U2 spliceosomal RNA: a 186-nucleotide RNA from Cryptococcus deneoformans. Rfam 15.1 lists 71,512 matches to the family in 2,642 species. Rfam's curators put it in the seed alignment. It is annotated as a spliceosomal small nuclear RNA.
[Rfam]
RNA sequence: AUCCUCUCUGGCCUCUUUUGGCUAAGAUCAUGUGUAGUAUCUGUUCUUAACGCUGUGAGAAGCGUUACAACCCUACGGGGUUUACUUCUCGCGAAGUUUUUCUGCGCCCGCGUUGCCUCUUCAGCUUGCUGAAUGUAACGCACGAUGUCGCUGGCACCGCACUACCGCCUUCUGAUGUCAGGGUUC
Numbered sequence: 001a002u003c004c005u006c007u008c009u010g011g012c013c014u015c016u017u018u019u020g021g022c023u024a025a026g027a028u029c030a031u032g033u034g035u036a037g038u039a040u041c042u043g044u045u046c047u048u049a050a051c052g053c054u055g056u057g058a059g060a061a062g063c064g065u066u067a068c069a070a071c072c073c074u075a076c077g078g079g080g081u082u083u084a085c086u087u088c089u090c091g092c093g094a095a096g097u098u099u100u101u102c103u104g105c106g107c108c109c110g111c112g113u114u115g116c117c118u119c120u121u122c123a124g125c126u127u128g129c130u131g132a133a134u135g136u137a138a139c140g141c142a143c144g145a146u147g148u149c150g151c152u153g154g155c156a157c158c159g160c161a162c163u164a165c166c167g168c169c170u171u172c173u174g175a176u177g178u179c180a181g182g183g184u185u186c
Stems, first nucleotide, its partner, number of pairs: 007027003010023004048067006069082005110141007121132004144179006150172001153169003